This 84-nucleotide RNA from Zophobas morio belongs to the Rfam family "mir-2944 microRNA precursor family". Pairs were carried over by alignment from the consensus structure, which was predicted with RNAalifold. Rfam links the family to the GO terms miRNA-mediated post-transcriptional gene silencing and RISC complex.

[Rfam]
RNA sequence: AGGCCGCUACUGUGGAGGAACUAUUGGUGUGAUUUGUUGUUUUUUAUCAUAUCACAGCCAUUAGUUACUUCACAGUGGUGGCUA
Numbered sequence: 001a002g003g004c005c006g007c008u009a010c011u012g013u014g015g016a017g018g019a020a021c022u023a024u025u026g027g028u029g030u031g032a033u034u035u036g037u038u039g040u041u042u043u044u045u046a047u048c049a050u051a052u053c054a055c056a057g058c059c060a061u062u063a064g065u066u067a068c069u070u071c072a073c074a075g076u077g078g079u080g081g082c083u084a
Stems, first nucleotide, its partner, number of pairs: 003082009016070003019066004025060001026058001028056006035049002
Dot-bracket structure: ..(((((((((....(((((((..((.((((((.((...........)).)))))).).)..)))).)))...)))))))))..